Rfam assigns this 75-nucleotide RNA sequence from Lucilia cuprina to the family "mir-87 microRNA precursor family".
Rfam links the family to the GO terms miRNA-mediated post-transcriptional gene silencing and RISC complex.
A search with the family's covariance model found it, with a score of 62 bits.
For this family Rfam cites "Temporal regulation of microRNA expression in Drosophila melanogaster mediated by hormonal signals and broad-Complex gene activity" (Sempere et al., Dev Biol, 2003).
Lineage of the source: Eukaryota > Bilateria > Pancrustacea > Brachycera > Lucilia.
The family's consensus secondary structure was predicted with RNAalifold.
RNA sequence: CAUUCGCACCUGUAUCUUGCUGAACCGUUUCCAGAUUUCAUUUCCGGUUGAGCAAAAUUUCAGGUGUGUGAGAAA
Numbered sequence: 001c002a003u004u005c006g007c008a009c010c011u012g013u014a015u016c017u018u019g020c021u022g023a024a025c026c027g028u029u030u031c032c033a034g035a036u037u038u039c040a041u042u043u044c045c046g047g048u049u050g051a052g053c054a055a056a057a058u059u060u061c062a063g064g065u066g067u068g069u070g071a072g073a074a075a
Stems, first nucleotide, its partner, number of pairs: 003072004007066006014058002017055002020052002023049001025047003